[Rfam]
Description: This 87-nucleotide RNA sequence from Schinkia azotoformans belongs to the Rfam family "SAM riboswitch aptamer (S box leader)". The family's consensus secondary structure is taken from published work. Rfam's curators write: The SAM riboswitch is found upstream of a number of genes which code for proteins involved in methionine or cysteine biosynthesis in Gram-positive bacteria. Its family is annotated with regulation of gene expression in the Gene Ontology. Taxonomically the source falls in Schinkia azotoformans (Bacteria, Bacillota, Caryophanales, Schinkia).
RNA sequence: UUCUUAUCUCGAGAGGUGGAGGGACUGGCCCUAUGAAAUCUCAGCAACCAGCCUGAAGGUCAGGUGCUAAUUCCAGACAGAUAAGAA
Dot-bracket structure: ((((((((....(((((...(((.[[[[)))......)))))((((.((.(((....)))..))))))...(]]]]..)))))))))